[Rfam]
RNA sequence: CUGUGCCUGGCUCCCUGUAUGCCACACAUGUAGCCCAACCCAUGGAUGUGGUUGCCUGCUGGGUGGCGUGCAAGGGGCCAAGCAUGC
Dot-bracket structure: .(((((.(((((((.(((((((((....(...............................)..))))))))).))))))).))))).

The family of this 87-nucleotide RNA sequence from Aegilops tauschii is "mir-160 microRNA precursor family". The family's consensus secondary structure was predicted with PFOLD. A reference for the family is Rhoades et al. (2002), "Prediction of plant microRNA targets", Cell. The source organism's lineage runs through Eukaryota, Magnoliopsida, Liliopsida, Poales and Aegilops tauschii.